[Rfam]
RNA sequence: AUCAAAGCCCGGGCUUCCGGGGUGAGUGCUAGACUCCUCUCCACGGAGGAGGCAUGCAGCCUCACACCCCCGCAUUCAGCCCGAUCCAAGUUCGGGUACGGGGCGAAGGAAGUCCGGAGCCAU
Numbered sequence: 001a002u003c004a005a006a007g008c009c010c011g012g013g014c015u016u017c018c019g020g021g022g023u024g025a026g027u028g029c030u031a032g033a034c035u036c037c038u039c040u041c042c043a044c045g046g047a048g049g050a051g052g053c054a055u056g057c058a059g060c061c062u063c064a065c066a067c068c069c070c071c072g073c074a075u076u077c078a079g080c081c082c083g084a085u086c087c088a089a090g091u092u093c094g095g096g097u098a099c100g101g102g103g104c105g106a107a108g109g110a111a112g113u114c115c116g117g118a119g120c121c122a123u
Stems, first nucleotide, its partner, number of pairs: 009117002012114007022065004028057002032053001035050005068103004074097004078092003